[Rfam]
RNA sequence: UUCUUAUCAAGAGUGGUGGAGGGACUGGCCCUAUGAAGCCCAGCAACCUGCUAAAGUAAUAGCAAGUUUUAAAUAUAUUUUUAUAUUUAAAGUGUUAUUUUAGUGUGGUGCUAAAUCCUGCAGAUUUAAUAUCUGAUAGAUAAGGG
Numbered sequence: 001u002u003c004u005u006a007u008c009a010a011g012a013g014u015g016g017u018g019g020a021g022g023g024a025c026u027g028g029c030c031c032u033a034u035g036a037a038g039c040c041c042a043g044c045a046a047c048c049u050g051c052u053a054a055a056g057u058a059a060u061a062g063c064a065a066g067u068u069u070u071a072a073a074u075a076u077a078u079u080u081u082u083a084u085a086u087u088u089a090a091a092g093u094g095u096u097a098u099u100u101u102a103g104u105g106u107g108g109u110g111c112u113a114a115a116u117c118c119u120g121c122a123g124a125u126u127u128a129a130u131a132u133c134u135g136a137u138a139g140a141u142a143a144g145g146g
Stems, first nucleotide, its partner, number of pairs: 001146008013041001015040003021031003025120001027118002042112004047108002049105013116138001121135005